[Rfam]
RNA sequence: UGAUUCUAUAGAGGAGCUUUUAACAAUAGUAAAUACUUUAGUAGGCAUACGCAGAGUAUUGAAAGGGUAUAAAAGCCGAAAUGCUUAAUGUGGCAACAUUAAGUGUUGGUAGAAAAUCAUAAAAGAUUUCUACUCUUUGGCAAGAGCCAUUGGAGCUAUAGGUUUA
Numbered sequence: 001u002g003a004u005u006c007u008a009u010a011g012a013g014g015a016g017c018u019u020u021u022a023a024c025a026a027u028a029g030u031a032a033a034u035a036c037u038u039u040a041g042u043a044g045g046c047a048u049a050c051g052c053a054g055a056g057u058a059u060u061g062a063a064a065g066g067g068u069a070u071a072a073a074a075g076c077c078g079a080a081a082u083g084c085u086u087a088a089u090g091u092g093g094c095a096a097c098a099u100u101a102a103g104u105g106u107u108g109g110u111a112g113a114a115a116a117u118c119a120u121a122a123a124a125g126a127u128u129u130c131u132a133c134u135c136u137u138u139g140g141c142a143a144g145a146g147c148c149a150u151u152g153g154a155g156c157u158a159u160a161g162g163u164u165u166a
Stems, first nucleotide, its partner, number of pairs: 006161006016076006023068002032060008080107012108134007116127003138149004
RNA: Lysine riboswitch aptamer
Organism: Mycoplasmopsis canis